A member of the RNA family "Small nucleolar RNA Z247" from Zea mays, 140 nucleotides long. The organism belongs to Zea, within Eukaryota. Rfam classes the family as a C/D-box small nucleolar RNA. On this family, see Chen et al., Nucleic Acids Res 2003: "The high diversity of snoRNAs in plants: identification and comparative study of 120 snoRNA genes from Oryza sativa". The base pairs follow the family's consensus structure, which was predicted with PFOLD.
RNA sequence: UCUCCUCAAGAUGAUGGGGUGAUCACCUACCUUUUGGCUAGUCUUAGUCCAUAUUAUGACUUGUUUGCCACCUCAAUGAUCACCAAAAGUGAGGCACCCACUCUCGAUGAUGUUUAUGCUCAUCUACUGUCCUAUGAGGC
Numbered sequence: 001u002c003u004c005c006u007c008a009a010g011a012u013g014a015u016g017g018g019g020u021g022a023u024c025a026c027c028u029a030c031c032u033u034u035u036g037g038c039u040a041g042u043c044u045u046a047g048u049c050c051a052u053a054u055u056a057u058g059a060c061u062u063g064u065u066u067g068c069c070a071c072c073u074c075a076a077u078g079a080u081c082a083c084c085a086a087a088a089g090u091g092a093g094g095c096a097c098c099c100a101c102u103c104u105c106g107a108u109g110a111u112g113u114u115u116a117u118g119c120u121c122a123u124c125u126a127c128u129g130u131c132c133u134a135u136g137a138g139g140c
Base pairs, nucleotide, nucleotide: 004139005138006137007136008135088108090106091105092104093103
Dot-bracket structure: ...(((((...............................................................................(.((((.........)))).)..........................))))).